This 114-nucleotide RNA from Kocuria coralli belongs to the Rfam family "SAM (S-adenosyl methionine) riboswitch aptamer". Pairs were carried over by alignment from the consensus structure, which is taken from published work. The organism belongs to Kocuria, within Bacteria.
RNA sequence: GAUGACGAGUCCCGGCGACUAGCUCUGGCUGGCCGGGCGGCAACCCUCUCACGUGGUGGGGUGCCCCAGAUGAACAUCCGGCUCCGGUCACGGACCUGACAGCAAGCACGAAAU
Numbered sequence: 001g002a003u004g005a006c007g008a009g010u011c012c013c014g015g016c017g018a019c020u021a022g023c024u025c026u027g028g029c030u031g032g033c034c035g036g037g038c039g040g041c042a043a044c045c046c047u048c049u050c051a052c053g054u055g056g057u058g059g060g061g062u063g064c065c066c067c068a069g070a071u072g073a074a075c076a077u078c079c080g081g082c083u084c085c086g087g088u089c090a091c092g093g094a095c096c097u098g099a100c101a102g103c104a105a106g107c108a109c110g111a112a113a114u
Stems, first nucleotide, its partner, number of pairs: 001078004009038001011037006021030002039065003044061003048056002081103003087096001